RNA: 6S / SsrS RNA
RNA sequence: CGCACCCUGCUUUGUGCGUAGUCCACCGGGAAGUUCGUAUCCAACACUCAUACAAAGGGAGUCCGGACUCUGAUUGUGGCGUGCACGCCCCGCUUAGGGGAAGCCCAAAGCAAUCAGGAGGACACCCACCUGGUAGAGAAGGGGUUCGGAACUUCGUGGAUUACGGCAAAGCGGGGUUUUC
Numbered sequence: 001c002g003c004a005c006c007c008u009g010c011u012u013u014g015u016g017c018g019u020a021g022u023c024c025a026c027c028g029g030g031a032a033g034u035u036c037g038u039a040u041c042c043a044a045c046a047c048u049c050a051u052a053c054a055a056a057g058g059g060a061g062u063c064c065g066g067a068c069u070c071u072g073a074u075u076g077u078g079g080c081g082u083g084c085a086c087g088c089c090c091c092g093c094u095u096a097g098g099g100g101a102a103g104c105c106c107a108a109a110g111c112a113a114u115c116a117g118g119a120g121g122a123c124a125c126c127c128a129c130c131u132g133g134u135a136g137a138g139a140a141g142g143g144g145u146u147c148g149g150a151a152c153u154u155c156g157u158g159g160a161u162u163a164c165g166g167c168a169a170a171g172c173g174g175g176g177u178u179u180u181c
Base pairs, nucleotide, nucleotide: 002179004177005176006175007174008173009172010171011170012169013168014167015166017165018164019163033152034151035150036149037147039145040144041143042142057127058126059125061123062122063121064120068117071116072115073114074113075112076111077110083104084103088100089099090098091097